[Rfam]
RNA sequence: AGCACAGCUUCAGGUUUCGGCUAGACUUGUGGACAGAAAUCCAUGGAGCACGUGCUAAAAGUAAAUCCUUCUUUGCAACCCACAGCAGAUCUGUGCUUGCUGUGUUACUAAUAUGAAGAGACACA
Numbered sequence: 001a002g003c004a005c006a007g008c009u010u011c012a013g014g015u016u017u018c019g020g021c022u023a024g025a026c027u028u029g030u031g032g033a034c035a036g037a038a039a040u041c042c043a044u045g046g047a048g049c050a051c052g053u054g055c056u057a058a059a060a061g062u063a064a065a066u067c068c069u070u071c072u073u074u075g076c077a078a079c080c081c082a083c084a085g086c087a088g089a090u091c092u093g094u095g096c097u098u099g100c101u102g103u104g105u106u107a108c109u110a111a112u113a114u115g116a117a118g119a120g121a122c123a124c125a
Stems, first nucleotide, its partner, number of pairs: 001056005007049003011045001014040005020034001026031001066121002069118001072115001074113002081104007
Description
Rfam assigns this 125-nucleotide RNA sequence from Salvator merianae to the family "Small nucleolar RNA SNORA40". The family has 28 seed sequences and 2,550 matches in Rfam 15.1. The family's RNA type in Rfam is H/ACA-box small nucleolar RNA. The snoRNA ACA 40 belongs to the H/ACA family of snoRNAs and guides the pseudouridylation of 28S rRNA subunit at position U4565. NB This family has a high threshold value to exclude a large number of closely related sequences that do not appear to have conserved H and ACA boxes, and may be pseudogenes. Taxonomically the source falls in Salvator (Eukaryota, Lepidosauria, Bifurcata, Laterata).